RNA sequence: AAAGCGGAAGCCAAAAAGCUAAUAGAGUAAGCA
Numbered sequence: 001a002a003a004g005c006g007g008a009a010g011c012c013a014a015a016a017a018g019c020u021a022a023u024a025g026a027g028u029a030a031g032c033a
Base pairs, nucleotide, nucleotide: 003020004019005018010032011031
The family of this 33-nucleotide RNA from Thermoflexibacter ruber is "DUF805b RNA".
The match comes from Rfam's covariance-model search (39 bits).